A member of the RNA family "Iron response element I" from Pipistrellus kuhlii, 35 nucleotides long. The literature on the family includes a 1987 paper in Science by Hentze et al., "Identification of the iron-responsive element for the translational regulation of human ferritin mRNA". The family's consensus secondary structure is taken from published work. It is annotated as a cis-regulatory element. The match comes from Rfam's covariance-model search (35 bits). Rfam links the family to the GO term response to iron ion.

RNA sequence: AUAUCUCUUGUUUCAACAGUGUUUGGACAGAACAG
Numbered sequence: 001a002u003a004u005c006u007c008u009u010g011u012u013u014c015a016a017c018a019g020u021g022u023u024u025g026g027a028c029a030g031a032a033c034a035g
Base pairs, nucleotide, nucleotide: 002034004032006031007030008029010028012027013026014025015024016023017021